The record is a 173-nucleotide RNA from Weissella paramesenteroides, which matches "Lysine riboswitch aptamer" in Rfam. Rfam links the family to the GO term lysine biosynthetic process. Riboswitches are metabolite binding domains within certain messenger RNAs that serve as precision sensors for their corresponding targets. Allosteric rearrangement of mRNA structure is mediated by ligand binding, and this results in modulation of gene expression. This family includes riboswitches that sense lysine in a number of genes involved in lysine metabolism, including lysC. The family's consensus secondary structure is taken from published work. The source organism's lineage runs through Bacteria, Bacillota, Bacilli, Lactobacillales and Weissella paramesenteroides.

RNA sequence: AUGAUUAAUAGAGGUUGCAACCAACAAGAGUCACUUAGUAGAGUCCACACAGACGGUGAGAUUAAGUAAAAGGGGCGGUUGCCGAAAUGAUACAGAUUGUGUAACCCGUAUUGUUGGGCUAAUAGCUAAUAACUAUUAGACUGUCGCUGAAUCAGCGGGGAGCUAUUGUCACA
Numbered sequence: 001a002u003g004a005u006u007a008a009u010a011g012a013g014g015u016u017g018c019a020a021c022c023a024a025c026a027a028g029a030g031u032c033a034c035u036u037a038g039u040a041g042a043g044u045c046c047a048c049a050c051a052g053a054c055g056g057u058g059a060g061a062u063u064a065a066g067u068a069a070a071a072g073g074g075g076c077g078g079u080u081g082c083c084g085a086a087a088u089g090a091u092a093c094a095g096a097u098u099g100u101g102u103a104a105c106c107c108g109u110a111u112u113g114u115u116g117g118g119c120u121a122a123u124a125g126c127u128a129a130u131a132a133c134u135a136u137u138a139g140a141c142u143g144u145c146g147c148u149g150a151a152u153c154a155g156c157g158g159g160g161a162g163c164u165a166u167u168g169u170c171a172c173a
Base pairs, nucleotide, nucleotide: 006168007167008166009165010164011163017082018081019080020079021078022077025074033067034066035065036064037063038062039061086115087114088113089112090111091110092109093108095106097104116142117141119139120138121137122136123135124134125133144158145157146156147155148154149153